Background: The record is a 101-nucleotide sequence from Xenopus tropicalis, which matches "mir-454 microRNA precursor family" in Rfam. NCBI's taxonomy places the organism under Eukaryota, Metazoa, Eumetazoa, Teleostomi, Silurana. The match comes from Rfam's covariance-model search (75 bits). The literature on the family includes a 2005 paper in Genes Dev by Chen et al., "The developmental miRNA profiles of zebrafish as determined by small RNA cloning".
RNA sequence: UGCCCUCAGCCUUAAGGAAGUGACCCUAUCAAUAUUGCCUCUGCUUUUGUGCUCGGAGUAGUAGUGCAAUAUUGCUUAUAGGGUCUUUUCCUUGAGACACC
Numbered sequence: 001u002g003c004c005c006u007c008a009g010c011c012u013u014a015a016g017g018a019a020g021u022g023a024c025c026c027u028a029u030c031a032a033u034a035u036u037g038c039c040u041c042u043g044c045u046u047u048u049g050u051g052c053u054c055g056g057a058g059u060a061g062u063a064g065u066g067c068a069a070u071a072u073u074g075c076u077u078a079u080a081g082g083g084u085c086u087u088u089u090c091c092u093u094g095a096g097a098c099a100c101c
Base pairs, nucleotide, nucleotide: 020087022085023084024083025082026081027080028079029078030074031073032072033071034070035069036068037067038066041064042063043062044061045060
Dot-bracket structure: ...................(.(((((((((((((((((..(((((..............))))).)))))))))...)))))))).)..............